[Rfam]
Purine riboswitch aptamer: a 101-nucleotide sequence from Kosmotoga arenicorallina.
RNA sequence: AAAUAGAAUAUCUUUCCGGCUCAUAUAAUCACAGGAAUAUGGCCUGUGGGUCUCUACCGGCAACCGUAAAUUGCCUGGCUAUGAGCGGGACUUUCUUUUUG
Numbered sequence: 001a002a003a004u005a006g007a008a009u010a011u012c013u014u015u016c017c018g019g020c021u022c023a024u025a026u027a028a029u030c031a032c033a034g035g036a037a038u039a040u041g042g043c044c045u046g047u048g049g050g051u052c053u054c055u056a057c058c059g060g061c062a063a064c065c066g067u068a069a070a071u072u073g074c075c076u077g078g079c080u081a082u083g084a085g086c087g088g089g090a091c092u093u094u095c096u097u098u099u100u101g
Base pairs, nucleotide, nucleotide: 019086020085021084022083023082024081025080029049030048031047032046033045034044035043058077059075060074061073062072063071
Dot-bracket structure: ..................(((((((...(((((((.......)))))))........((((((.......))))).)..)))))))...............
Rfam describes the family as follows. Riboswitches are metabolite binding domains within certain messenger RNAs that serve as precision sensors for their corresponding targets. The source organism's lineage runs through Bacteria, Thermotogati, Kosmotogales, Kosmotoga and Kosmotoga arenicorallina.